[Rfam]
RNA sequence: UAGCGAAUGCUGUAAAGAGAGCUUUCCAUCGACAGUAUGAGUUAGAAACACUGUCAUGGACUUGCUCUCUUUUUGGACGUCGCU
Numbered sequence: 001u002a003g004c005g006a007a008u009g010c011u012g013u014a015a016a017g018a019g020a021g022c023u024u025u026c027c028a029u030c031g032a033c034a035g036u037a038u039g040a041g042u043u044a045g046a047a048a049c050a051c052u053g054u055c056a057u058g059g060a061c062u063u064g065c066u067c068u069c070u071u072u073u074u075g076g077a078c079g080u081c082g083c084u
Stems, first nucleotide, its partner, number of pairs: 014072005020066003025060004031055003035051002
Rfam assigns this 84-nucleotide RNA sequence from Trichogramma brassicae to the family "mir-46/mir-47/mir-281 microRNA precursor family". It scores 69 bits against the family's covariance model. For this family Rfam cites "Computational identification of Drosophila microRNA genes" (Lai et al., Genome Biol, 2003).